[Rfam]
RNA sequence: AAAAAUCAAGGGCAAAACCUGAGAAAUCAGGCGACGCAAAGCUAUAGGGUCUUUAUGAGAUAGCCAGUUGCGAUU
Dot-bracket structure: ...........((....(((((....)))))....))..((((...(((((.......)))..))))))......
This 75-nucleotide sequence from Anaeroplasma bactoclasticum belongs to the Rfam family "c-di-GMP-I riboswitch aptamer". A search with the family's covariance model found it, with a score of 56 bits.